[Rfam]
RNA sequence: AUACAAAUGCAGAGGGACGCGGCCGCGUUGAGAAGGAUAAAACCUGACUCUUUGAACCUGUUGGUUAAUACCAGCGUAGGGAGCAUGUCAAGAAUCAAU
Number, nucleotide and partner (000 for none) at each position: 001a000002u000003a000004c000005a000006a000007a086008u085009g084010c083011a051012g050013a049014g048015g000016g045017a028018c027019g026020c025021g000022g000023c000024c000025g020026c019027g018028u017029u000030g000031a000032g000033a000034a000035g044036g043037a000038u000039a000040a000041a000042a000043c036044c035045u016046g000047a000048c014049u013050c012051u011052u000053u000054g000055a000056a000057c080058c079059u078060g077061u074062u073063g072064g071065u000066u000067a000068a000069u000070a000071c064072c063073a062074g061075c000076g000077u060078a059079g058080g057081g000082a000083g010084c009085a008086u007087g000088u000089c000090a000091a000092g000093a000094a000095u000096c000097a000098a000099u000
A member of the RNA family "TPP riboswitch aptamer (THI element)" from Enterococcus alcedinis, 99 nucleotides long. Pairs were carried over by alignment from the consensus structure, which is taken from published work.